[Rfam]
RNA sequence: UGGCGCCCAAUGGUGUGGCUUCGGAUACGGGGGAAUUCGCGAGGGAAGAGGCUUGUAAGUGUUCCACCGAAGAAAAAAAAUAGUGAAAGUGAAAGUCAGUUCGACAAAGAUCGCUGCGGGAGCCUGCCUCGCCGUUCUUAAAGGUACAGUAGCGCCUAACUAUGGGACAAGAAUUAAGUAAGCAUAAAGUUUUUGUUAAGCAAUUAAAAGAAGCUUUAAAGACACGGGGAGUAAAGGUUAAGAGUAAUGAUCUUUUUAAGUUUUUUGACCUUAUUAAGGACACCUGUCCGU
Numbered sequence: 001u002g003g004c005g006c007c008c009a010a011u012g013g014u015g016u017g018g019c020u021u022c023g024g025a026u027a028c029g030g031g032g033g034a035a036u037u038c039g040c041g042a043g044g045g046a047a048g049a050g051g052c053u054u055g056u057a058a059g060u061g062u063u064c065c066a067c068c069g070a071a072g073a074a075a076a077a078a079a080a081u082a083g084u085g086a087a088a089g090u091g092a093a094a095g096u097c098a099g100u101u102c103g104a105c106a107a108a109g110a111u112c113g114c115u116g117c118g119g120g121a122g123c124c125u126g127c128c129u130c131g132c133c134g135u136u137c138u139u140a141a142a143g144g145u146a147c148a149g150u151a152g153c154g155c156c157u158a159a160c161u162a163u164g165g166g167a168c169a170a171g172a173a174u175u176a177a178g179u180a181a182g183c184a185u186a187a188a189g190u191u192u193u194u195g196u197u198a199a200g201c202a203a204u205u206a207a208a209a210g211a212a213g214c215u216u217u218a219a220a221g222a223c224a225c226g227g228g229g230a231g232u233a234a235a236g237g238u239u240a241a242g243a244g245u246a247a248u249g250a251u252c253u254u255u256u257u258a259a260g261u262u263u264u265u266u267g268a269c270c271u272u273a274u275u276a277a278g279g280a281c282a283c284c285u286g287u288c289c290g291u
Stems, first nucleotide, its partner, number of pairs: 006033003013028003038051001040048001095145003100141002110136001112134001115131002118128002150170001152168001155166004175218003178214002225267008235253006276291001278289004
A member of the RNA family "Mason-Pfizer monkey virus packaging signal" from Sciurus vulgaris, 291 nucleotides long.
Taxonomically the source falls in Sciurus (Eukaryota, Mammalia, Rodentia, Sciurinae).
Rfam classes the family as a cis-regulatory element.
Rfam's curators write: This family represents a group of sequences that are related to the Mason-Pfizer monkey virus (MPMV) packaging signal. The packaging signal is located in the 5' UTR and is required for specific RNA encapsidation.